Rfam assigns this 84-nucleotide RNA from Oryza sativa to the family "MIR390 microRNA precursor family". NCBI's taxonomy places the organism under Eukaryota, Liliopsida, Poaceae, Oryzeae, Oryza sativa. On this family, see Adai et al., Genome Res 2005: "Computational prediction of miRNAs in Arabidopsis thaliana". Rfam's curators put it in the seed alignment.

RNA sequence: UGGAACAAUCCUUGAAGCUCAGGAGGGAUAGCGCCUCGAAAUCAAACUAGGCGCUAUCUAUCCUGAGCUCCAUGGUUUGUUCUU
Numbered sequence: 001u002g003g004a005a006c007a008a009u010c011c012u013u014g015a016a017g018c019u020c021a022g023g024a025g026g027g028a029u030a031g032c033g034c035c036u037c038g039a040a041a042u043c044a045a046a047c048u049a050g051g052c053g054c055u056a057u058c059u060a061u062c063c064u065g066a067g068c069u070c071c072a073u074g075g076u077u078u079g080u081u082c083u084u
Base pairs, nucleotide, nucleotide: 010075016069017068018067019066020065021064022063023062024061026059027058028057029056030055031054032053033052034051035050